[Rfam]
RNA sequence: AAGCCAUGGUGAGGACAUUUGCAGAGCAUUUCUUUAAAAUGAUCCCAUGCCUCACUGAAUGAUUCAUCAAAUUUCUGUGUGAAUUUAAUGAUCUCAUUCUUAAGACU
Numbered sequence: 001a002a003g004c005c006a007u008g009g010u011g012a013g014g015a016c017a018u019u020u021g022c023a024g025a026g027c028a029u030u031u032c033u034u035u036a037a038a039a040u041g042a043u044c045c046c047a048u049g050c051c052u053c054a055c056u057g058a059a060u061g062a063u064u065c066a067u068c069a070a071a072u073u074u075c076u077g078u079g080u081g082a083a084u085u086u087a088a089u090g091a092u093c094u095c096a097u098u099c100u101u102a103a104g105a106c107u
Stems, first nucleotide, its partner, number of pairs: 001107001004104001006101001057074002060071001

Rfam assigns this 107-nucleotide sequence from Artemisia annua to the family "Plant small nucleolar RNA R71". It scores 76 bits against the family's covariance model. Rfam 15.1 lists 278,378 matches to the family in 216 species. It is annotated as a C/D-box small nucleolar RNA. The source organism's lineage runs through Eukaryota, Viridiplantae, Pentapetalae, campanulids and Artemisia. Pairs were carried over by alignment from the consensus structure, which was predicted with PFOLD.